[Rfam]
RNA sequence: UUCUUAUCGAGGGUGGCGGAGGGACUGGCGCAGUGAAGCACGGCAACCUGUAACUACAAGGUGUCAAAUCCAGCGGUGUCUUACACCGAAAGAUGAGAA
Numbered sequence: 001u002u003c004u005u006a007u008c009g010a011g012g013g014u015g016g017c018g019g020a021g022g023g024a025c026u027g028g029c030g031c032a033g034u035g036a037a038g039c040a041c042g043g044c045a046a047c048c049u050g051u052a053a054c055u056a057c058a059a060g061g062u063g064u065c066a067a068a069u070c071c072a073g074c075g076g077u078g079u080c081u082u083a084c085a086c087c088g089a090a091a092g093a094u095g096a097g098a099a
Stems, first nucleotide, its partner, number of pairs: 001099008013041002016039002021031001023029001025073004042065004047061002049058003069091001074088006